[Rfam]
RNA sequence: AGUCUUGCGCCAGGGGCAAUGUCGUUGCAGGUGACGCCGAGCGGAUGCGCGACUAUUGCUAGUUGAAAACUACACCAAUUCCCUUCUAUCGGCCCUCUGUGGUCUGGUGGAAAUUUCUGGGGCCCUGAGGGGC
Numbered sequence: 001a002g003u004c005u006u007g008c009g010c011c012a013g014g015g016g017c018a019a020u021g022u023c024g025u026u027g028c029a030g031g032u033g034a035c036g037c038c039g040a041g042c043g044g045a046u047g048c049g050c051g052a053c054u055a056u057u058g059c060u061a062g063u064u065g066a067a068a069a070c071u072a073c074a075c076c077a078a079u080u081c082c083c084u085u086c087u088a089u090c091g092g093c094c095c096u097c098u099g100u101g102g103u104c105u106g107g108u109g110g111a112a113a114u115u116u117c118u119g120g121g122g123c124c125c126u127g128a129g130g131g132g133c
Base pairs, nucleotide, nucleotide: 021053022052023051024050025049027048028047029046035043036042037041084111085110086109088108089107090106091105092104094102095101122133123132124131125130
Dot-bracket structure: ....................(((((.(((.....(((...)))..))))))))..............................(((.(((((.((.....)).))))))))..........((((....))))